SAM (S-adenosyl methionine) riboswitch aptamer: a 118-nucleotide RNA sequence from Nocardia asteroides. SAM-IV is a mRNA element that regulates gene expression via direct sensing of S-adenosylmethionine (SAM or AdoMet). On this family, see Weinberg et al., RNA 2008: "The aptamer core of SAM-IV riboswitches mimics the ligand-binding site of SAM-I riboswitches". Pairs were carried over by alignment from the consensus structure, which is taken from published work. Gene Ontology terms of the family: S-adenosylmethionine metabolic process and regulation of gene expression. NCBI's taxonomy places the organism under Bacteria, Actinomycetes, Mycobacteriales, Nocardiaceae, Nocardia asteroides.
RNA sequence: GGUCACGAGUUCCAGCUUUGAGCCCCGGCUUGCUGGGCGGCAACCCUCCAUCGACGGCGGGGUGCUCCGGGUGACGACCGGAUGGCGGGGGGAGUCUCCACCGCCAUAAGCGUCCUUU
Numbered sequence: 001g002g003u004c005a006c007g008a009g010u011u012c013c014a015g016c017u018u019u020g021a022g023c024c025c026c027g028g029c030u031u032g033c034u035g036g037g038c039g040g041c042a043a044c045c046c047u048c049c050a051u052c053g054a055c056g057g058c059g060g061g062g063u064g065c066u067c068c069g070g071g072u073g074a075c076g077a078c079c080g081g082a083u084g085g086c087g088g089g090g091g092g093a094g095u096c097u098c099c100a101c102c103g104c105c106a107u108a109a110g111c112g113u114c115c116u117u118u
Stems, first nucleotide, its partner, number of pairs: 001079004009038001011037006021030002039066003044062003048057002082107007090099002